Record summary:
A member of the RNA family "Tryptophan operon leader" from Brenneria rubrifaciens, 105 nucleotides long. Rfam classes the family as a cis-regulatory leader. Lineage of the source: Bacteria > Pseudomonadati > Enterobacterales > Pectobacteriaceae > Brenneria. From the family's description: At least 6 amino acid operons are known to be regulated by attenuation. In each a leader sequence of 150-200 bp is found upstream of the first gene in the operon. This leader sequence can assume two different secondary structures known as the terminator and the anti-terminator structure. The base pairs follow the family's consensus structure, which is taken from published work. It scores 77 bits against the family's covariance model.
[Rfam]
RNA sequence: CGUGGUUGGUGGCGCUCUUCCCUGUCGCGGGUGGAGUAAUCACGCAUAGCUGUUAUUACAACAUGCAGAUAUUCUCAGGCCCGCUUACCCAGCGGGCUUUUCUUU
Numbered sequence: 001c002g003u004g005g006u007u008g009g010u011g012g013c014g015c016u017c018u019u020c021c022c023u024g025u026c027g028c029g030g031g032u033g034g035a036g037u038a039a040u041c042a043c044g045c046a047u048a049g050c051u052g053u054u055a056u057u058a059c060a061a062c063a064u065g066c067a068g069a070u071a072u073u074c075u076c077a078g079g080c081c082c083g084c085u086u087a088c089c090c091a092g093c094g095g096g097c098u099u100u101u102c103u104u105u
Stems, first nucleotide, its partner, number of pairs: 009043004014037005020031003078098007